RNA: Bacterial large subunit ribosomal RNA, nucleotides 1529 to 1864
RNA sequence: UGAGAGAACGAUGCUGAAGGAACUAGGCAAAUUGCUCGUGUAACUUCGGGAUAAGCGAGACCCGUUUUUGGGCAACCAGAGGCGGGUGGCACAGACCAGGGGGUAGCGACUGUUUAGUAAAAACACAGGGCUGUGCGAAGUCGAGAGACGACGUAUACGGCCUGACGCCUGCCCGGUGCCGGAAGGUUAAGAGGAGAUGUGCAAGCAUUGAAUUGAAGCCCCGGUAAACGGCGGCCGUAACUAUAACGGUCCUAAGGUAGCGAAAUUCCUUGUCGGGUAAGUUCCGACCUGCACGAAUGGCGUAACGACUUCCCCACUGUCUCCAGCAUCGGCUCA
Numbered sequence: 001u002g003a004g005a006g007a008a009c010g011a012u013g014c015u016g017a018a019g020g021a022a023c024u025a026g027g028c029a030a031a032u033u034g035c036u037c038g039u040g041u042a043a044c045u046u047c048g049g050g051a052u053a054a055g056c057g058a059g060a061c062c063c064g065u066u067u068u069u070g071g072g073c074a075a076c077c078a079g080a081g082g083c084g085g086g087u088g089g090c091a092c093a094g095a096c097c098a099g100g101g102g103g104u105a106g107c108g109a110c111u112g113u114u115u116a117g118u119a120a121a122a123a124c125a126c127a128g129g130g131c132u133g134u135g136c137g138a139a140g141u142c143g144a145g146a147g148a149c150g151a152c153g154u155a156u157a158c159g160g161c162c163u164g165a166c167g168c169c170u171g172c173c174c175g176g177u178g179c180c181g182g183a184a185g186g187u188u189a190a191g192a193g194g195a196g197a198u199g200u201g202c203a204a205g206c207a208u209u210g211a212a213u214u215g216a217a218g219c220c221c222c223g224g225u226a227a228a229c230g231g232c233g234g235c236c237g238u239a240a241c242u243a244u245a246a247c248g249g250u251c252c253u254a255a256g257g258u259a260g261c262g263a264a265a266u267u268c269c270u271u272g273u274c275g276g277g278u279a280a281g282u283u284c285c286g287a288c289c290u291g292c293a294c295g296a297a298u299g300g301c302g303u304a305a306c307g308a309c310u311u312c313c314c315c316a317c318u319g320u321c322u323c324c325a326g327c328a329u330c331g332g333c334u335c336a
Stems, first nucleotide, its partner, number of pairs: 001336004009331008018322003035059005044049001060087012088092001100315004105310002107307002111125003128163008136153001140149003166302004171232003176229002178225005185220003191214002196209005233251006252256001262289001272288006
Dot-bracket structure: ((((....((((((((.(((..............(((((....(....).....)))))((((((((((((....))))))))))))(...).......((((.((((..(((.........)))..(((((((((...(((....)))...)..))))))))..((((.(((..(((((((..(((...((...(((((....)))))...))...))))))))..)))))((((((.......))))))(...).....(.........((((((.....))))))).........))))...)).)).))))....))).)))))))).))))